[Rfam]
RNA sequence: AAGAUGUGUAGGUCUGUGAAUGGGGUAGGAUCCGACGCCUCCAGAAAGCUACAUAGGCUCUCCUACCCAACUUCUAUUCUGGUAUGUUCUAGUCAUACAGACCGGAACAUGUAGUCCCGCUGAUCUGAGCUUGGAACGGAUCCAAUCCCAACCCCUUGGAGGGGAUGGGGAUGCAUGGCCAAGGCAGAAGAG
Numbered sequence: 001a002a003g004a005u006g007u008g009u010a011g012g013u014c015u016g017u018g019a020a021u022g023g024g025g026u027a028g029g030a031u032c033c034g035a036c037g038c039c040u041c042c043a044g045a046a047a048g049c050u051a052c053a054u055a056g057g058c059u060c061u062c063c064u065a066c067c068c069a070a071c072u073u074c075u076a077u078u079c080u081g082g083u084a085u086g087u088u089c090u091a092g093u094c095a096u097a098c099a100g101a102c103c104g105g106a107a108c109a110u111g112u113a114g115u116c117c118c119g120c121u122g123a124u125c126u127g128a129g130c131u132u133g134g135a136a137c138g139g140a141u142c143c144a145a146u147c148c149c150a151a152c153c154c155c156u157u158g159g160a161g162g163g164g165a166u167g168g169g170g171a172u173g174c175a176u177g178g179c180c181a182a183g184g185c186a187g188a189a190g191a192g
Base pairs, nucleotide, nucleotide: 011103012102013101014100015099016098017097023068024067025066026065027064028063029062030061032057033056072192073191074190075189077188078187080186081185083183084096085095086094088105089104108177109176110175111174112173113172115170116169117168118167123166124165125164126163131151132150133149134148136146153161154159
Description
The record is a 192-nucleotide RNA sequence from Anopheles sinensis, which matches "drz-agam-2-2 ribozyme" in Rfam. A search with the family's covariance model found it, with a score of 105 bits. The source organism's lineage runs through Eukaryota, Eumetabola, Endopterygota, Anophelinae and Myzorhynchus. Pairs were carried over by alignment from the consensus structure, which is taken from published work.